[Rfam]
RNA sequence: UUCAGAUAUGGCGACAUGGUUCCUGGUACUAUUGCUGGCAAGAUAGUGGGGGGCGUCUGUUCGUUAUCUGGAGUGUUGGUGAUCGCUCUCCCAGUACCCGUCAUCGUCUCCAAC
Numbered sequence: 001u002u003c004a005g006a007u008a009u010g011g012c013g014a015c016a017u018g019g020u021u022c023c024u025g026g027u028a029c030u031a032u033u034g035c036u037g038g039c040a041a042g043a044u045a046g047u048g049g050g051g052g053g054c055g056u057c058u059g060u061u062c063g064u065u066a067u068c069u070g071g072a073g074u075g076u077u078g079g080u081g082a083u084c085g086c087u088c089u090c091c092c093a094g095u096a097c098c099c100g101u102c103a104u105c106g107u108c109u110c111c112a113a114c
Stems, first nucleotide, its partner, number of pairs: 002113001005110001008107004013102003018097001021094001037077004050062002
This 114-nucleotide RNA from Leptidea sinapis belongs to the Rfam family "Potassium channel RNA editing signal". NCBI's taxonomy places the organism under Eukaryota, Bilateria, Endopterygota, Aparaglossata, Leptidea. This family represents a group of sequences related to the human potassium channel Kv1.1 hairpin element which directs the efficient modification of an adenosine to inosine by an adenosine deaminase acting on RNA (ADAR). The match comes from Rfam's covariance-model search (84 bits). Pairs were carried over by alignment from the consensus structure, which is taken from published work.